Background
The record is a 102-nucleotide RNA sequence from Anaerobacillus arseniciselenatis, which matches "Purine riboswitch aptamer" in Rfam. Riboswitches are metabolite binding domains within certain messenger RNAs that serve as precision sensors for their corresponding targets. It scores 94 bits against the family's covariance model.
RNA sequence: UAAAAAUUAAUUUCAUAUUUUCGUAUAUACUCAGGAAUAUGGCCUGAGCGUUUCUACCGAGCUACCGUAAAUGGCUUGACUACGAAGGAAGUACGUUGUUAU
Numbered sequence: 001u002a003a004a005a006a007u008u009a010a011u012u013u014c015a016u017a018u019u020u021u022c023g024u025a026u027a028u029a030c031u032c033a034g035g036a037a038u039a040u041g042g043c044c045u046g047a048g049c050g051u052u053u054c055u056a057c058c059g060a061g062c063u064a065c066c067g068u069a070a071a072u073g074g075c076u077u078g079a080c081u082a083c084g085a086a087g088g089a090a091g092u093a094c095g096u097u098g099u100u101a102u
Stems, first nucleotide, its partner, number of pairs: 018088008030048006058078007